[Rfam]
RNA sequence: UGGAAAUGAUGAAAUAGAGAUGUUUGGGUGUUGAUUGUUGUAUGAAUGGAAAAUUUUAGUGUGUAUGUUGAUUAAUUUUAGUUUAUUUAUUUUUUUUUUUUGCUAAUUCAGUGUGUGAAAGUGUGUGUGUGUGCGCGUGCUUUUGGUGGCAAUGGAAAGGGGGCACUGAAUGGUGAUGCUGAUAAUGGAGUGCAUCUGAGGCUGUUGUAGAAAUAACCUGGGUUGCUGAUUACAACAUUGCCAAUGAUUAUAACCCAAGAACAGCUCACCUUUCUAGCCCAGCACCCUAAAAUCUCUGACAGGCUCAUUAAAUAUGGUCCUGUGAUCUGAUCCAA
Numbered sequence: 001u002g003g004a005a006a007u008g009a010u011g012a013a014a015u016a017g018a019g020a021u022g023u024u025u026g027g028g029u030g031u032u033g034a035u036u037g038u039u040g041u042a043u044g045a046a047u048g049g050a051a052a053a054u055u056u057u058a059g060u061g062u063g064u065a066u067g068u069u070g071a072u073u074a075a076u077u078u079u080a081g082u083u084u085a086u087u088u089a090u091u092u093u094u095u096u097u098u099u100u101u102g103c104u105a106a107u108u109c110a111g112u113g114u115g116u117g118a119a120a121g122u123g124u125g126u127g128u129g130u131g132u133g134c135g136c137g138u139g140c141u142u143u144u145g146g147u148g149g150c151a152a153u154g155g156a157a158a159g160g161g162g163g164c165a166c167u168g169a170a171u172g173g174u175g176a177u178g179c180u181g182a183u184a185a186u187g188g189a190g191u192g193c194a195u196c197u198g199a200g201g202c203u204g205u206u207g208u209a210g211a212a213a214u215a216a217c218c219u220g221g222g223u224u225g226c227u228g229a230u231u232a233c234a235a236c237a238u239u240g241c242c243a244a245u246g247a248u249u250a251u252a253a254c255c256c257a258a259g260a261a262c263a264g265c266u267c268a269c270c271u272u273u274c275u276a277g278c279c280c281a282g283c284a285c286c287c288u289a290a291a292a293u294c295u296c297u298g299a300c301a302g303g304c305u306c307a308u309u310a311a312a313u314a315u316g317g318u319c320c321u322g323u324g325a326u327c328u329g330a331u332c333c334a335a
Stems, first nucleotide, its partner, number of pairs: 001334004203237008212227001214225004